[Rfam]
RNA sequence: GAAAUGCCACGCUGGAUGUGCUCGUUGGUCAUAUCUGUUCGUCAAAAUGUGAUUAUGACUAGAGACACAUUCAGCUUGGCUAGUCG
Numbered sequence: 001g002a003a004a005u006g007c008c009a010c011g012c013u014g015g016a017u018g019u020g021c022u023c024g025u026u027g028g029u030c031a032u033a034u035c036u037g038u039u040c041g042u043c044a045a046a047a048u049g050u051g052a053u054u055a056u057g058a059c060u061a062g063a064g065a066c067a068c069a070u071u072c073a074g075c076u077u078g079g080c081u082a083g084u085c086g
Stems, first nucleotide, its partner, number of pairs: 006080004012074009022065002027060007
The record is an 86-nucleotide RNA, which matches "mir-44 microRNA precursor family" in Rfam. Pairs were carried over by alignment from the consensus structure, which was predicted with RNAalifold. For this family Rfam cites "Repertoire and evolution of miRNA genes in four divergent nematode species" (de Wit et al., Genome Res, 2009). Gene Ontology terms of the family: miRNA-mediated post-transcriptional gene silencing and RISC complex. Rfam 15.1 lists 66 matches to the family in 44 species.